[Rfam]
RNA sequence: GUCAGUAACCCAGCCCUAAAGGGACUGGGCUUGCAAGAGUAAUCAAGCAAGCCGUGCUGACCAGACCACCCUGAGUGACCUGCCCUGAGCGGUGUCGAAGGGAGUCGAAGGGUAGCCGUUAUUUGAGCCACGACACCCCGGAAUGCGUAGCCCCUUCGGGGUUCAGCAGUCGCUCAUGGGGGAAACCCCCAAGACCGCGCUGCUUCACUAGUUCCCUGCUCUGUCAUUUGCAAUUAAACAGUUUUAAGGUCACUGAAACAGUGUUGCAAGUCUAAAAAGCUUUUAUAACUGGUCGUUCGCGCAGCGUGCCGGAGGCAUCUAGCUAACAUUAC
Numbered sequence: 001g002u003c004a005g006u007a008a009c010c011c012a013g014c015c016c017u018a019a020a021g022g023g024a025c026u027g028g029g030c031u032u033g034c035a036a037g038a039g040u041a042a043u044c045a046a047g048c049a050a051g052c053c054g055u056g057c058u059g060a061c062c063a064g065a066c067c068a069c070c071c072u073g074a075g076u077g078a079c080c081u082g083c084c085c086u087g088a089g090c091g092g093u094g095u096c097g098a099a100g101g102g103a104g105u106c107g108a109a110g111g112g113u114a115g116c117c118g119u120u121a122u123u124u125g126a127g128c129c130a131c132g133a134c135a136c137c138c139c140g141g142a143a144u145g146c147g148u149a150g151c152c153c154c155u156u157c158g159g160g161g162u163u164c165a166g167c168a169g170u171c172g173c174u175c176a177u178g179g180g181g182g183a184a185a186c187c188c189c190c191a192a193g194a195c196c197g198c199g200c201u202g203c204u205u206c207a208c209u210a211g212u213u214c215c216c217u218g219c220u221c222u223g224u225c226a227u228u229u230g231c232a233a234u235u236a237a238a239c240a241g242u243u244u245u246a247a248g249g250u251c252a253c254u255g256a257a258a259c260a261g262u263g264u265u266g267c268a269a270g271u272c273u274a275a276a277a278a279g280c281u282u283u284u285a286u287a288a289c290u291g292g293u294c295g296u297u298c299g300c301g302c303a304g305c306g307u308g309c310c311g312g313a314g315g316c317a318u319c320u321a322g323c324u325a326a327c328a329u330u331a332c
Stems, first nucleotide, its partner, number of pairs: 001061007010029002012026002015022002030051004064294005069112004118289005125282004133224002137218001140215005148325004226271009238262002241259006248253001
A member of the RNA family "HNH endonuclease-associated RNA and ORF (HEARO) RNA" from Anabaena sp. 90, 332 nucleotides long. The organism belongs to Anabaena, within Bacteria.